A member of the RNA family "Small nucleolar RNA Z13/snr52" from Cyphellophora attinorum, 100 nucleotides long. A search with the family's covariance model found it, with a score of 95 bits. NCBI's taxonomy places the organism under Eukaryota, Fungi, Dikarya, Cyphellophoraceae, Cyphellophora.
[Rfam]
RNA sequence: CCUGCUCAAAUGAUGAAAUAUUCCGGAUGUUAAUCACAGACCUGUUCCGAAUGCGUAAAACCAUGUGGAUAUUUCCGUUGCCUUCCUUCUGAUUGAGCAC
Numbered sequence: 001c002c003u004g005c006u007c008a009a010a011u012g013a014u015g016a017a018a019u020a021u022u023c024c025g026g027a028u029g030u031u032a033a034u035c036a037c038a039g040a041c042c043u044g045u046u047c048c049g050a051a052u053g054c055g056u057a058a059a060a061c062c063a064u065g066u067g068g069a070u071a072u073u074u075c076c077g078u079u080g081c082c083u084u085c086c087u088u089c090u091g092a093u094u095g096a097g098c099a100c
Stems, first nucleotide, its partner, number of pairs: 003099003024077004